[Rfam]
RNA sequence: AACCUCUCGUCUUGGCGCUUUGAUGCAUGUGCGUGAAAGUGUAUGCUAGAAGAGAGGGAAAGUGUGUCAUGCCAAGUGGCGUGACAGUCGGAUGUCUUCGGUAUCGGCCGCACCUCAAGGCCGAUGUCAUCCUCUGCGUCCGAAACAGCU
Numbered sequence: 001a002a003c004c005u006c007u008c009g010u011c012u013u014g015g016c017g018c019u020u021u022g023a024u025g026c027a028u029g030u031g032c033g034u035g036a037a038a039g040u041g042u043a044u045g046c047u048a049g050a051a052g053a054g055a056g057g058g059a060a061a062g063u064g065u066g067u068c069a070u071g072c073c074a075a076g077u078g079g080c081g082u083g084a085c086a087g088u089c090g091g092a093u094g095u096c097u098u099c100g101g102u103a104u105c106g107g108c109c110g111c112a113c114c115u116c117a118a119g120g121c122c123g124a125u126g127u128c129a130u131c132c133u134c135u136g137c138g139u140c141c142g143a144a145a146c147a148g149c150u
Stems, first nucleotide, its partner, number of pairs: 003057006010050001015042004021036001023034002066085008088143008100128002104124006
The family of this 150-nucleotide sequence from Toxocara canis is "Nematode snoRNA ceN88".
For this family Rfam cites "Systematic identification of non-coding RNA 2,2,7-trimethylguanosine cap structures in Caenorhabditis elegans" (Jia et al., BMC Mol Biol, 2007).
NCBI's taxonomy places the organism under Eukaryota, Metazoa, Bilateria, Ascaridomorpha, Toxocara.
It is annotated as an H/ACA-box small nucleolar RNA.
The family has 6 seed sequences and 99 matches in Rfam 15.1.